[Rfam]
Rfam assigns this 124-nucleotide sequence to the family "LAGLIDADG-2 RNA". It is annotated as a small RNA. Rfam's curators put it in the seed alignment. The family's consensus secondary structure is taken from published work.

RNA sequence: ACAUGAGGCUCACUUAGAGCCUCGCUAACGUGGGGAGGUUAGGCAUCCACUUGGGUAGCGACAGCAUCAUUCUGGAGAAACGGCAUCCAGAGGCAGGGUUAUCAGCCCUGGUCGGAACCGUUUC
Numbered sequence: 001a002c003a004u005g006a007g008g009c010u011c012a013c014u015u016a017g018a019g020c021c022u023c024g025c026u027a028a029c030g031u032g033g034g035g036a037g038g039u040u041a042g043g044c045a046u047c048c049a050c051u052u053g054g055g056u057a058g059c060g061a062c063a064g065c066a067u068c069a070u071u072c073u074g075g076a077g078a079a080a081c082g083g084c085a086u087c088c089a090g091a092g093g094c095a096g097g098g099u100u101a102u103c104a105g106c107c108c109u110g111g112u113c114g115g116a117a118c119c120g121u122u123u124c
Stems, first nucleotide, its partner, number of pairs: 005023007025042005031036001046076004058070001060068002077124007092113003096109003